[Rfam]
RNA sequence: UCCUCGGUCCGACGCGGCGCUCCAGCGUGAACCUGGUCAGGUCCGGAAGGAAGCAGCCAUAAGCGCCCCGGAGCGGGUGCCGUCGGGAAGCCGGGGACGC
Numbered sequence: 001u002c003c004u005c006g007g008u009c010c011g012a013c014g015c016g017g018c019g020c021u022c023c024a025g026c027g028u029g030a031a032c033c034u035g036g037u038c039a040g041g042u043c044c045g046g047a048a049g050g051a052a053g054c055a056g057c058c059a060u061a062a063g064c065g066c067c068c069c070g071g072a073g074c075g076g077g078u079g080c081c082g083u084c085g086g087g088a089a090g091c092c093g094g095g096g097a098c099g100c
Stems, first nucleotide, its partner, number of pairs: 004094005009086006015077001018075005025066004034059004042051003
A member of the RNA family "Bacterial small signal recognition particle RNA" from Calidithermus roseus, 100 nucleotides long. Lineage of the source: Bacteria > Thermotogati > Deinococci > Thermales > Calidithermus. For this family Rfam cites "SRPDB: Signal Recognition Particle Database" (Rosenblad et al., Nucleic Acids Res, 2003). The signal recognition particle (SRP) is a universally conserved ribonucleoprotein involved in the co-translational targeting of proteins to membranes. A search with the family's covariance model found it, with a score of 73 bits.